Rfam assigns this 69-nucleotide sequence from Punica granatum to the family "Small nucleolar RNA Z105".
It scores 49 bits against the family's covariance model.
Taxonomically the source falls in Punica (Eukaryota, Spermatophyta, eudicotyledons, Lythraceae).
[Rfam]
RNA sequence: UGGGCAUGGUGAUGAUGAACUUUAAUCAUCUGAUACUCUGAUGAUUCAAUAACCUCCUACUCAUACUGA
Numbered sequence: 001u002g003g004g005c006a007u008g009g010u011g012a013u014g015a016u017g018a019a020c021u022u023u024a025a026u027c028a029u030c031u032g033a034u035a036c037u038c039u040g041a042u043g044a045u046u047c048a049a050u051a052a053c054c055u056c057c058u059a060c061u062c063a064u065a066c067u068g069a
Stems, first nucleotide, its partner, number of pairs: 006064004028045002030040001